[Rfam]
A member of the RNA family "poplar-1 RNA", 139 nucleotides long. The sequence is in the family's curated seed alignment. The family's RNA type in Rfam is small RNA.
RNA sequence: UUUGAGCCGAGGGGCAAUGUGGAAACAGCAGGGCAGCGCUGCCUGGGAACCGCAACAGAGAGCCCGCUUUGCGUGACGGAUUGGCUGAAGCGCUUAGAGAUAUUGAGCCCAAUGCAACGGGCAGCCAAGCAAUAGCAAA
Dot-bracket structure: ...........((((..(((..........(((((....)))))..........)))....)))).((..((((......[[[[.....))))..))...((((..((((........))))..]]]]..)))).....
Numbered sequence: 001u002u003u004g005a006g007c008c009g010a011g012g013g014g015c016a017a018u019g020u021g022g023a024a025a026c027a028g029c030a031g032g033g034c035a036g037c038g039c040u041g042c043c044u045g046g047g048a049a050c051c052g053c054a055a056c057a058g059a060g061a062g063c064c065c066g067c068u069u070u071g072c073g074u075g076a077c078g079g080a081u082u083g084g085c086u087g088a089a090g091c092g093c094u095u096a097g098a099g100a101u102a103u104u105g106a107g108c109c110c111a112a113u114g115c116a117a118c119g120g121g122c123a124g125c126c127a128a129g130c131a132a133u134a135g136c137a138a139a
Stems, first nucleotide, its partner, number of pairs: 012065004018057003031044005067097002071093004081128004101134004107122004